[Rfam]
RNA sequence: AGCGUUCAUCUUCUCAGAAGACGGAAGUAAGGAAACAUCCUGAAGGAAUUUACC
Numbered sequence: 001a002g003c004g005u006u007c008a009u010c011u012u013c014u015c016a017g018a019a020g021a022c023g024g025a026a027g028u029a030a031g032g033a034a035a036c037a038u039c040c041u042g043a044a045g046g047a048a049u050u051u052a053c054c
Stems, first nucleotide, its partner, number of pairs: 004049004009021005024051001030041003
Dot-bracket structure: ...((((.(((((...)))))..[.....(((......)))....)))).]...